[Rfam]
This 125-nucleotide RNA from Aotus nancymaae belongs to the Rfam family "U4 spliceosomal RNA". Taxonomically the source falls in Aotus (Eukaryota, Opisthokonta, Vertebrata, Theria). By type it is a spliceosomal small nuclear RNA. The base pairs follow the family's consensus structure, which is taken from published work.
RNA sequence: AAUAUCUGAGCCAAUGAGGUUUAUCCGAGGCGCGAUUAUUGCUAAUUGAAAAGUGUUCCCAAUACCCCGCCAUCACAACUUGAAAUAUAGUCGGCAUUGGCAAUUUUUGACAGUCUCUAUGGAGA
Numbered sequence: 001a002a003u004a005u006c007u008g009a010g011c012c013a014a015u016g017a018g019g020u021u022u023a024u025c026c027g028a029g030g031c032g033c034g035a036u037u038a039u040u041g042c043u044a045a046u047u048g049a050a051a052a053g054u055g056u057u058c059c060c061a062a063u064a065c066c067c068c069g070c071c072a073u074c075a076c077a078a079c080u081u082g083a084a085a086u087a088u089a090g091u092c093g094g095c096a097u098u099g100g101c102a103a104u105u106u107u108u109g110a111c112a113g114u115c116u117c118u119a120u121g122g123a124g125a
Stems, first nucleotide, its partner, number of pairs: 004036003010031003018026002069101003072097002076093001078091003114125004